A member of the RNA family "c-di-AMP riboswitch aptamer (ydaO/yuaA leader)" from Streptomyces genisteinicus, 215 nucleotides long.
From the family's description: This family represents a conserved RNA structure found upstream of the ydaO and yuaA genes in Bacillus subtilis and related genes in other bacteria. The ydaO/yuaA element is thought to act as a genetic 'off' switch for the ydaO and yuaA genes in its native state. It is believed that the element may be triggered during osmotic shock leading to activation of ydaO, a predicted amino acid transporter gene, and members of the yuaA-yubG operon which code for KtrA and KtrB K+ transporters.
RNA sequence: CCGGACAGGACGCCGAAUCCUGCCGCUGUCCGGGCAUCCGACCAGACACUCGGACGGCAGGAGCGGGGGAACCAGGUAGGCCGCCGUGACGGGACCCGGUCCGGAGACAUCCGGAGCGGACACCGGCACGGCUAGGGGUGAAGCCGCGCAGCCGCGCGGCCGGGCAUCUCCAGCCCGAACCCGACAGCUCACCUCGCAGGCGACGGAGAGGAACU
Numbered sequence: 001c002c003g004g005a006c007a008g009g010a011c012g013c014c015g016a017a018u019c020c021u022g023c024c025g026c027u028g029u030c031c032g033g034g035c036a037u038c039c040g041a042c043c044a045g046a047c048a049c050u051c052g053g054a055c056g057g058c059a060g061g062a063g064c065g066g067g068g069g070a071a072c073c074a075g076g077u078a079g080g081c082c083g084c085c086g087u088g089a090c091g092g093g094a095c096c097c098g099g100u101c102c103g104g105a106g107a108c109a110u111c112c113g114g115a116g117c118g119g120a121c122a123c124c125g126g127c128a129c130g131g132c133u134a135g136g137g138g139u140g141a142a143g144c145c146g147c148g149c150a151g152c153c154g155c156g157c158g159g160c161c162g163g164g165c166a167u168c169u170c171c172a173g174c175c176c177g178a179a180c181c182c183g184a185c186a187g188c189u190c191a192c193c194u195c196g197c198a199g200g201c202g203a204c205g206g207a208g209a210g211g212a213a214c215u
Stems, first nucleotide, its partner, number of pairs: 011202004018062008063197006073135001136182003144159004162176004
Dot-bracket structure: ..........((((...((((((((.............................))))))))((((((....(.............................................................)(((.....((((........))))..((((.......))))...))).........)))))).)))).............